RAGATH-18 RNA: a 73-nucleotide RNA sequence.

RNA sequence: CCUGCGGAGAGUACUAGAACUUGUGAGUAGUAUCGAAACAUUCGAUACAAAAGCAUACUCAAUGAAGCAGGAA
Numbered sequence: 001c002c003u004g005c006g007g008a009g010a011g012u013a014c015u016a017g018a019a020c021u022u023g024u025g026a027g028u029a030g031u032a033u034c035g036a037a038a039c040a041u042u043c044g045a046u047a048c049a050a051a052a053g054c055a056u057a058c059u060c061a062a063u064g065a066a067g068c069a070g071g072a073a
Stems, first nucleotide, its partner, number of pairs: 001071005009060005022055003030048003035043002
Source information: From the family's description: Actinobacteria, Firmicutes, Fusobacteria, Thermotogae (1 example).